[Rfam]
RNA sequence: UGGAUCAAUGAUGACUACUGGUGGCAGAUGAGUCAUAUACGAUGAAUACGUACAUGUCUGGAACCUUGAGGUCCAA
Numbered sequence: 001u002g003g004a005u006c007a008a009u010g011a012u013g014a015c016u017a018c019u020g021g022u023g024g025c026a027g028a029u030g031a032g033u034c035a036u037a038u039a040c041g042a043u044g045a046a047u048a049c050g051u052a053c054a055u056g057u058c059u060g061g062a063a064c065c066u067u068g069a070g071g072u073c074c075a076a
Stems, first nucleotide, its partner, number of pairs: 002074005
RNA: Small nucleolar RNA SNORD113/SNORD114 family
Organism: Hipposideros armiger